[Rfam]
RNA sequence: GGUGCAGAUGACGAUAAAAAGACAGGGACAUCAGAGGCUCUUCUAAUUAAAGAGUAUGAAUGAUGAUUUGUCAAUGGGAAUCUCUCUGAUGCACC
Numbered sequence: 001g002g003u004g005c006a007g008a009u010g011a012c013g014a015u016a017a018a019a020a021g022a023c024a025g026g027g028a029c030a031u032c033a034g035a036g037g038c039u040c041u042u043c044u045a046a047u048u049a050a051a052g053a054g055u056a057u058g059a060a061u062g063a064u065g066a067u068u069u070g071u072c073a074a075u076g077g078g079a080a081u082c083u084c085u086c087u088g089a090u091g092c093a094c095c
Stems, first nucleotide, its partner, number of pairs: 002094005

Rfam assigns this 95-nucleotide RNA from Kalanchoe fedtschenkoi to the family "Small nucleolar RNA R44/J54/Z268 family". Rfam classes the family as a C/D-box small nucleolar RNA. Rfam 15.1 lists 1,168 matches to the family in 228 species. NCBI's taxonomy places the organism under Eukaryota, Mesangiospermae, Gunneridae, Crassulaceae, Kalanchoe.